Rfam assigns this 52-nucleotide sequence from Solanum tuberosum to the family "MIR1886 microRNA precursor family". NCBI's taxonomy places the organism under Eukaryota, Streptophytina, Spermatophyta, Solaneae, Solanum.
[Rfam]
RNA sequence: UGAGAUGGAAUCAACAUUUGGACAUGUAAUUUCAUGCUGAUUCCAUCUCACG
Number, nucleotide and partner (000 for none) at each position: 001u050002g049003a048004g047005a046006u045007g044008g043009a042010a041011u040012c039013a038014a000015c036016a035017u034018u029019u028020g027021g000022a000023c000024a000025u000026g000027u020028a019029a018030u000031u000032u000033c000034a017035u016036g015037c000038u013039g012040a011041u010042u009043c008044c007045a006046u005047c004048u003049c002050a001051c000052g000